[Rfam]
RNA sequence: GGGGAUGAUCGGUUUCGACAGCGGAUACCGAUGCAGAGGAAGCGUGUCGAGGAAGCGGCAAUGAUCUCGUAAACCAUGUGUCGCAACCAAUAAUCGCCAACUCCAAGAGCGAUAACUCCCGCUUCGCCCUCGCUGCCUAAUUUCAGGUAACGAACAGAAGCCUCUGUGAGGAGCGUCAGCCCGGGGAUGGUCCCGACCCGGAUCCUGGCGUCAUCUAGGGAUCUAAACCUCUAGCCCCGGUCACGGGGGUUGGAGGGAAACCAAACAGUGACUGAGCCCGUCGGAGACUUGUCCGCGUGAUCUCCGGGGCCGAGAAACUCGUAGCGGACUGCACACGGAGAAGCUCUGUUUCCGUACCGUUGGACGCGGGUUCGAUUCCCGCCAUCUCCACUC
Numbered sequence: 001g002g003g004g005a006u007g008a009u010c011g012g013u014u015u016c017g018a019c020a021g022c023g024g025a026u027a028c029c030g031a032u033g034c035a036g037a038g039g040a041a042g043c044g045u046g047u048c049g050a051g052g053a054a055g056c057g058g059c060a061a062u063g064a065u066c067u068c069g070u071a072a073a074c075c076a077u078g079u080g081u082c083g084c085a086a087c088c089a090a091u092a093a094u095c096g097c098c099a100a101c102u103c104c105a106a107g108a109g110c111g112a113u114a115a116c117u118c119c120c121g122c123u124u125c126g127c128c129c130u131c132g133c134u135g136c137c138u139a140a141u142u143u144c145a146g147g148u149a150a151c152g153a154a155c156a157g158a159a160g161c162c163u164c165u166g167u168g169a170g171g172a173g174c175g176u177c178a179g180c181c182c183g184g185g186g187a188u189g190g191u192c193c194c195g196a197c198c199c200g201g202a203u204c205c206u207g208g209c210g211u212c213a214u215c216u217a218g219g220g221a222u223c224u225a226a227a228c229c230u231c232u233a234g235c236c237c238c239g240g241u242c243a244c245g246g247g248g249g250u251u252g253g254a255g256g257g258a259a260a261c262c263a264a265a266c267a268g269u270g271a272c273u274g275a276g277c278c279c280g281u282c283g284g285a286g287a288c289u290u291g292u293c294c295g296c297g298u299g300a301u302c303u304c305c306g307g308g309g310c311c312g313a314g315a316a317a318c319u320c321g322u323a324g325c326g327g328a329c330u331g332c333a334c335a336c337g338g339a340g341a342a343g344c345u346c347u348g349u350u351u352c353c354g355u356a357c358c359g360u361u362g363g364a365c366g367c368g369g370g371u372u373c374g375a376u377u378c379c380c381g382c383c384a385u386c387u388c389c390a391c392u393c
Base pairs, nucleotide, nucleotide: 001389002388003387004386005385006384007383019362020361021360022359023358024357030352031351033349034348035347036346037345038344043337044336045335046334047333048069049068050067051066052065055084056083057082058081059080060079130153131152132151134149135148136147174210175209176208177207178206179205181201182200183199186198188196190223193220194218228256229255230254231253232252233251234250235249236248239273240272241271242270243269244268276310277309278308279307282306283305284304286302287301291329292328293327294326366382367381368380369379370378
Shown here is a 393-nucleotide RNA, a member of the family "transfer-messenger RNA". The literature on the family includes a 1996 paper in RNA by Williams and Bartel, "Phylogenetic analysis of tmRNA secondary structure". Pairs were carried over by alignment from the consensus structure, which is taken from published work. Gene Ontology term of the family: RNA catabolic process. The match comes from Rfam's covariance-model search (162 bits). Bacterial tmRNA, also known as 10Sa RNA or SsrA, is named for its dual tRNA and mRNA-like properties. Its role is to liberate the mRNA from a stalled ribosome.